Annotation
Shown here is a 159-nucleotide RNA sequence from Paenibacillus mucilaginosus, a member of the family "azaaromatic riboswitch aptamer (yjdF RNA)". A search with the family's covariance model found it, with a score of 63 bits.
Nucleotides: 159
Stems, first nucleotide, its partner, number of pairs: 005150007022041006042116006125136004
Number, partner (000 for none) and nucleotide at each position: 001000g002000g003000a004000a005150g006149u007148g008147a009146g010145c011144g012000u013000a014000a015000a016000a017000u018000c019000g020000c021000g022041g023040u024039c025038c026037g027036g028000u029000u030000g031000g032000u033000a034000g035000c036027c037026c038025g039024g040023a041022u042116g043115c044114a045113c046112g047111g048000a049000a050000g051000g052000c053000g054000g055000a056000a057000c058000g059000g060000g061000a062000g063000c064000g065000g066000a067000g068000c069000a070000g071000c072000g073000g074000c075000a076000a077000g078000a079000u080000a081000a082000u083000u084000c085000a086000u087000a088000c089000g090000g091000c092000c093000g094000g095000c096000u097000c098000c099000g100000c101000c102000g103000c104000u105000u106000c107000c108000c109000c110000g111047c112046c113045g114044u115043g116042u117000c118000a119000u120000a121000u122000c123000c124000u125136u126135c127134c128133c129000c130000c131000u132000c133128g134127g135126g136125a137000u138000g139000u140000c141000c142000a143000u144011c145010g146009c147008u148007c149006g150005u151000a152000a153000g154000a155000u156000c157000a158000g159000a